[Rfam]
A member of the RNA family "skipping-rope RNA", 82 nucleotides long. By type it is a small RNA.

RNA sequence: AGAUAUUGAGGUGGUAAACAGGUGCAACCACACACCAGAUUGGUUAAAAGAGAUCCGGGGAAUGCGCCACCCGGCAAUAUCA
Numbered sequence: 001a002g003a004u005a006u007u008g009a010g011g012u013g014g015u016a017a018a019c020a021g022g023u024g025c026a027a028c029c030a031c032a033c034a035c036c037a038g039a040u041u042g043g044u045u046a047a048a049a050g051a052g053a054u055c056c057g058g059g060g061a062a063u064g065c066g067c068c069a070c071c072c073g074g075c076a077a078u079a080u081c082a
Stems, first nucleotide, its partner, number of pairs: 002081007011031005021068005033050001034044004055074005